The family of this 153-nucleotide sequence from Candidatus Thermoflexus japonica is "SAM riboswitch aptamer (S box leader)".
About the family: The SAM riboswitch is found upstream of a number of genes which code for proteins involved in methionine or cysteine biosynthesis in Gram-positive bacteria.
Rfam links the family to the GO term regulation of gene expression.
NCBI's taxonomy places the organism under Bacteria, Bacillati, Chloroflexota, Thermoflexia, Thermoflexus.
[Rfam]
RNA sequence: CACUCAUCGAGAGAGGCGGAGGGACCCGGCCCGAUGAAGCCUCGGCAACCUCCCGCGGAGCAUCAGGGCCGACCGGGGAGCACGCCGCCCCCCGGCGGAGCGCUCGCGGGGAUGGUGCCAAGUCCGGCAGACGGUCCGUCUGGGAGAUGAGGU
Numbered sequence: 001c002a003c004u005c006a007u008c009g010a011g012a013g014a015g016g017c018g019g020a021g022g023g024a025c026c027c028g029g030c031c032c033g034a035u036g037a038a039g040c041c042u043c044g045g046c047a048a049c050c051u052c053c054c055g056c057g058g059a060g061c062a063u064c065a066g067g068g069c070c071g072a073c074c075g076g077g078g079a080g081c082a083c084g085c086c087g088c089c090c091c092c093c094g095g096c097g098g099a100g101c102g103c104u105c106g107c108g109g110g111g112a113u114g115g116u117g118c119c120a121a122g123u124c125c126g127g128c129a130g131a132c133g134g135u136c137c138g139u140c141u142g143g144g145a146g147a148u149g150a151g152g153u
Stems, first nucleotide, its partner, number of pairs: 003151006013043005021032003026127004044119004049115002051111008123145001128142006